Background:
Rfam assigns this 356-nucleotide RNA sequence from Aliigemmobacter aestuarii to the family "Alphaproteobacteria transfer-messenger RNA". For this family Rfam cites "Phylogenetic analysis of tmRNA secondary structure" (Williams and Bartel, RNA, 1996). Its family is annotated with RNA catabolic process in the Gene Ontology. A search with the family's covariance model found it, with a score of 299 bits. From the family's description: Bacterial tmRNA, also known as 10Sa RNA or SsrA, is named for its dual tRNA and mRNA-like properties. Its role is to liberate the mRNA from a stalled ribosome. To accomplish this part of the tmRNA is used as a reading frame that ends in a translation stop signal. The broken mRNA is replaced in the ribosome by the tmRNA and translation of the tmRNA leads to addition of a proteolysis tag to the incomplete protein enabling recognition by a protease. Recently a number of permuted tmRNA genes have been found encoded in two parts. tmRNAs have been identified in eubacteria and some chloroplasts but are absent from archaeal and eukaryote nuclear genomes. Its Rfam clan is "tRNA clan".

[Rfam]
RNA sequence: UCCCUUGCCCCCAUCCCCGACACUUCCUAUAUUCGGGUCGUUCGGGUUCGCCCGGACUAUGGCGAUAAACGCACCUGUAAUAAGCGGAUCGGACCCGGGGGCGGUACCCGGCGGCUCCACCAACACUCCCUCGUUGGGGGCGGAGGGGGCCGAAACAGGAUCGACGAACGUCUAAAGAGGCCAGCUUUCGCUCGGUGAGGUACCACCGUUAUCGGUCCGAAAAGUACAGUUGCCAACGACAACCGUGCUCCGGUCGCUCUGGCUGCGUAAGCAGCUCGGGUAACCGAAACCUCAAGUCCUUGGGCUUUGCCGCUCAAGGCGGGGCCCGCAGGAGCCUGGCAACAGAAUCCUGCAUU
Numbered sequence: 001u002c003c004c005u006u007g008c009c010c011c012c013a014u015c016c017c018c019g020a021c022a023c024u025u026c027c028u029a030u031a032u033u034c035g036g037g038u039c040g041u042u043c044g045g046g047u048u049c050g051c052c053c054g055g056a057c058u059a060u061g062g063c064g065a066u067a068a069a070c071g072c073a074c075c076u077g078u079a080a081u082a083a084g085c086g087g088a089u090c091g092g093a094c095c096c097g098g099g100g101g102c103g104g105u106a107c108c109c110g111g112c113g114g115c116u117c118c119a120c121c122a123a124c125a126c127u128c129c130c131u132c133g134u135u136g137g138g139g140g141c142g143g144a145g146g147g148g149g150c151c152g153a154a155a156c157a158g159g160a161u162c163g164a165c166g167a168a169c170g171u172c173u174a175a176a177g178a179g180g181c182c183a184g185c186u187u188u189c190g191c192u193c194g195g196u197g198a199g200g201u202a203c204c205a206c207c208g209u210u211a212u213c214g215g216u217c218c219g220a221a222a223a224g225u226a227c228a229g230u231u232g233c234c235a236a237c238g239a240c241a242a243c244c245g246u247g248c249u250c251c252g253g254u255c256g257c258u259c260u261g262g263c264u265g266c267g268u269a270a271g272c273a274g275c276u277c278g279g280g281u282a283a284c285c286g287a288a289a290c291c292u293c294a295a296g297u298c299c300u301u302g303g304g305c306u307u308u309g310c311c312g313c314u315c316a317a318g319g320c321g322g323g324g325c326c327c328g329c330a331g332g333a334g335c336c337u338g339g340c341a342a343c344a345g346a347a348u349c350c351u352g353c354a355u356u
Stems, first nucleotide, its partner, number of pairs: 040057007061192005071185002074180003085170002089167003095111005112152007193208004199218002202216003322337004328353006